This 54-nucleotide sequence from Megalops atlanticus belongs to the Rfam family "UnaL2 LINE 3' element". The source organism's lineage runs through Eukaryota, Actinopterygii, Actinopteri, Megalopidae and Megalops. Rfam classes the family as a cis-regulatory element. From the family's description: The eel long interspersed element (LINE) UnaL2 and its partner short interspersed element (SINE) share a conserved 3' tail containing a stem-loop that is critical for their retrotransposition. Its family is annotated with transposition, RNA-mediated in the Gene Ontology.
[Rfam]
RNA sequence: UGUAUGAAACUAUGAAAGUCGCUCUGGAUAAGAGCAUCUUCAAAAUGACAAUAA
Numbered sequence: 001u002g003u004a005u006g007a008a009a010c011u012a013u014g015a016a017a018g019u020c021g022c023u024c025u026g027g028a029u030a031a032g033a034g035c036a037u038c039u040u041c042a043a044a045a046u047g048a049c050a051a052u053a054a
Stems, first nucleotide, its partner, number of pairs: 013043001014041003021035005
Dot-bracket structure: ............((((....(((((.....)))))...))).)...........